RNA sequence: UUCUAUCAAAACAACGAAAGCCCUGCCUCUCUUCCAUCCUUGCGGCUCCAAUGACCGCGCCAGUGAGAAUUGGAUUACAAACACCUG
Number, nucleotide and partner (000 for none) at each position: 001u000002u000003c000004u000005a000006u000007c000008a000009a000010a000011a000012c000013a000014a000015c000016g000017a000018a000019a000020g000021c000022c000023c000024u000025g000026c000027c000028u000029c000030u000031c000032u000033u000034c000035c067036a000037u000038c000039c063040u062041u059042g058043c057044g056045g055046c000047u053048c000049c000050a000051a000052u000053g047054a000055c045056c044057g043058c042059g041060c000061c000062a040063g039064u000065g000066a000067g035068a000069a000070u000071u000072g000073g000074a000075u000076u000077a000078c000079a000080a000081a000082c000083a000084c000085c000086u000087g000
RNA: BsrC